Bacterial RNase P class A: a 357-nucleotide RNA from Arenimonas oryziterrae.
The source organism's lineage runs through Bacteria, Pseudomonadati, Lysobacterales, Arenimonas and Arenimonas oryziterrae.

RNA sequence: GGAGUCGGCCAAGACAACCGCGUCGCGACUUGAUCGCGCCGAGGAAAGUCCGGGCUCCACAGAGCAGGGUGCCAGGUAACGCCUGGGCGGCGCGAGCCGACGGAAAGUGCAACAGAAAACAAACCGCCGAACGGCUCGAAAGAGUGCGUGGUAAGGGCGAAACGGCGAGGUAAGAGCUCACCGCAUGCGGGGCUAACGCCGCAUGGCACGGCAAACCCCACCCGGAGCAAGGCCAAAUAGGGGGACUAUGGGUUGGCUCGACCCGUCCCCGGGUGCGCUGCUUGAGCCUUGCCGCGAGGCAAGGCCGAGAGGAAUGGUUGUCCACGACAGAACCCGGCUUACUGGUCGGCUCCGCCA
Numbered sequence: 001g002g003a004g005u006c007g008g009c010c011a012a013g014a015c016a017a018c019c020g021c022g023u024c025g026c027g028a029c030u031u032g033a034u035c036g037c038g039c040c041g042a043g044g045a046a047a048g049u050c051c052g053g054g055c056u057c058c059a060c061a062g063a064g065c066a067g068g069g070u071g072c073c074a075g076g077u078a079a080c081g082c083c084u085g086g087g088c089g090g091c092g093c094g095a096g097c098c099g100a101c102g103g104a105a106a107g108u109g110c111a112a113c114a115g116a117a118a119a120c121a122a123a124c125c126g127c128c129g130a131a132c133g134g135c136u137c138g139a140a141a142g143a144g145u146g147c148g149u150g151g152u153a154a155g156g157g158c159g160a161a162a163c164g165g166c167g168a169g170g171u172a173a174g175a176g177c178u179c180a181c182c183g184c185a186u187g188c189g190g191g192g193c194u195a196a197c198g199c200c201g202c203a204u205g206g207c208a209c210g211g212c213a214a215a216c217c218c219c220a221c222c223c224g225g226a227g228c229a230a231g232g233c234c235a236a237a238u239a240g241g242g243g244g245a246c247u248a249u250g251g252g253u254u255g256g257c258u259c260g261a262c263c264c265g266u267c268c269c270c271g272g273g274u275g276c277g278c279u280g281c282u283u284g285a286g287c288c289u290u291g292c293c294g295c296g297a298g299g300c301a302a303g304g305c306c307g308a309g310a311g312g313a314a315u316g317g318u319u320g321u322c323c324a325c326g327a328c329a330g331a332a333c334c335c336g337g338c339u340u341a342c343u344g345g346u347c348g349g350c351u352c353c354g355c356c357a
Base pairs, nucleotide, nucleotide: 001353002352003351004350005349006348007347008346009345010344013322014321015320016319017318018317019316021041022040024038025037026036027035028034046340047339048338050337051336052335053334054333055227056226057225058224062259063258064257065256067223068222069221070220071219072086073085074084075083076082087101088099089098090097091096102218103217107216108215109212110211124156125155126152127151128150132148133147134145135144136143137142164182165181167179168178169177183207184205185204186203187202188201189199191197231279232278233277241270242269243268244267245266246265250264251263252262253261254260286305287304288303289302290301291300292299293298